[Rfam]
RNA sequence: CUGCAUCAAAUGAUGAGUUUUCAUGUCUCUUCUCUGAAUGUAAUGUGAGGAGUUUAUCUUUUUUAUCUGACACCUGCAG
Numbered sequence: 001c002u003g004c005a006u007c008a009a010a011u012g013a014u015g016a017g018u019u020u021u022c023a024u025g026u027c028u029c030u031u032c033u034c035u036g037a038a039u040g041u042a043a044u045g046u047g048a049g050g051a052g053u054u055u056a057u058c059u060u061u062u063u064u065a066u067c068u069g070a071c072a073c074c075u076g077c078a079g
Stems, first nucleotide, its partner, number of pairs: 001079005

About this RNA:
Small nucleolar RNA SNORD111: a 79-nucleotide RNA from Gadus morhua. Pairs were carried over by alignment from the consensus structure, which was predicted with RNAalifold. The family's RNA type in Rfam is C/D-box small nucleolar RNA. A search with the family's covariance model found it, with a score of 48 bits. Taxonomically the source falls in Gadus (Eukaryota, Vertebrata, Gnathostomata, Paracanthopterygii).